The family of this 75-nucleotide sequence from Nyctibius grandis is "Small nucleolar RNA SNORD66". The match comes from Rfam's covariance-model search (67 bits). On this family, see Huttenhofer et al., EMBO J 2001: "RNomics: an experimental approach that identifies 201 candidates for novel, small, non-messenger RNAs in mouse". From the family's description: snoRNA HBII-142 is part of the C/D family of snoRNAs. It is the human orthologue of the mouse MBII-142 snoRNA and is predicted to guide 2'O-ribose methylation of small 18S rRNA at residue C1272. By type it is a C/D-box small nucleolar RNA. The family's consensus secondary structure was predicted with RNAalifold. The family has 20 seed sequences and 1,346 matches in Rfam 15.1. Taxonomically the source falls in Nyctibius (Eukaryota, Deuterostomia, Chordata, Neoaves).
[Rfam]
RNA sequence: CUCCGUGAUGACCAAGCCUUUGAGCCGCUGUGUCUGGGCCACUGAUGUCCAUGAUGGAGCUGAGGAUCUGAGGAG
Dot-bracket structure: ((((...................................................................))))